[Rfam]
RNA sequence: UGUAGGCGUGCAGGGUUCGCUGACAGAGGGCCGAGCGGACGCAAUCGUCGCUGGUAAAGCGCACGAUGCCGACCAUCUCAUCCUCCUCAAAACGUGCGAGCGCGUCGCUGAGCCCGGACUGUACGCCGCGGGGCAGGUCGCACUGAGUGAUGUCGCCGUUAACGAUGACCGUCACGUUUUCCCCGAGGCGGGUG
Numbered sequence: 001u002g003u004a005g006g007c008g009u010g011c012a013g014g015g016u017u018c019g020c021u022g023a024c025a026g027a028g029g030g031c032c033g034a035g036c037g038g039a040c041g042c043a044a045u046c047g048u049c050g051c052u053g054g055u056a057a058a059g060c061g062c063a064c065g066a067u068g069c070c071g072a073c074c075a076u077c078u079c080a081u082c083c084u085c086c087u088c089a090a091a092a093c094g095u096g097c098g099a100g101c102g103c104g105u106c107g108c109u110g111a112g113c114c115c116g117g118a119c120u121g122u123a124c125g126c127c128g129c130g131g132g133g134c135a136g137g138u139c140g141c142a143c144u145g146a147g148u149g150a151u152g153u154c155g156c157c158g159u160u161a162a163c164g165a166u167g168a169c170c171g172u173c174a175c176g177u178u179u180u181c182c183c184c185g186a187g188g189c190g191g192g193u194g
Stems, first nucleotide, its partner, number of pairs: 003053003008048001015040005061078001063076001065074001067072001083112003088107001093102003114192002117189001119188002122185001125134003137166004144158002171183001174180001
Dot-bracket structure: ..(((..(......(((((................))))).......)..))).......(.(.(.(....).).).)....(((..(....(((....)))....)..))).((.(.((.(..(((....)))..((((...((...........))....))))....(..(.....)..).).))).))..
RNA: Yersinia sRNA 251
Organism: Pluralibacter gergoviae